[Rfam]
RNA sequence: AGAGUUUUUUCGGUGUGGAAGACUAGUGAUUUUGUUGUUCUGAAUUGAAAGAAACAAAAAAUCAUUAUUCUUCCCACUGCAAGACUCG
Numbered sequence: 001a002g003a004g005u006u007u008u009u010u011c012g013g014u015g016u017g018g019a020a021g022a023c024u025a026g027u028g029a030u031u032u033u034g035u036u037g038u039u040c041u042g043a044a045u046u047g048a049a050a051g052a053a054a055c056a057a058a059a060a061a062u063c064a065u066u067a068u069u070c071u072u073c074c075c076a077c078u079g080c081a082a083g084a085c086u087c088g
Stems, first nucleotide, its partner, number of pairs: 002087005008082002011079005017073002020071003026065007035057005